This 107-nucleotide RNA sequence from Piliocolobus tephrosceles belongs to the Rfam family "Y RNA". The source organism's lineage runs through Eukaryota, Tetrapoda, Boreoeutheria, Primates and Piliocolobus. It scores 59 bits against the family's covariance model.
Nucleotides: 107
Base pairs, nucleotide, nucleotide: 001103002102003101004100005099006098008097009096011095012094015091018085019084020083021082029069030068031067033065034064
Number, partner (000 for none) and nucleotide at each position: 001103g002102g003101c004100u005099g006098g007000c008097u009096c010000u011095g012094a013000g014000u015091g016000c017000a018085g019084u020083g021082g022000u023000g024000u025000u026000u027000a028000c029069a030068a031067c032000u033065a034064a035000u036000u037000g038000a039000u040000c041000a042000c043000a044000a045000c046000c047000a048000g049000u050000u051000a052000c053000a054000g055000a056000u057000u058000u059000u060000a061000u062000u063000g064034u065033u066000u067031g068030u069029u070000u071000c072000u073000u074000c075000u076000c077000c078000a079000c080000u081000u082021u083020c084019a085018c086000a087000g088000c089000u090000u091015c092000a093000c094012u095011u096009g097008a098006c099005u100004a101003g102002u103001c104000u105000u106000a107000a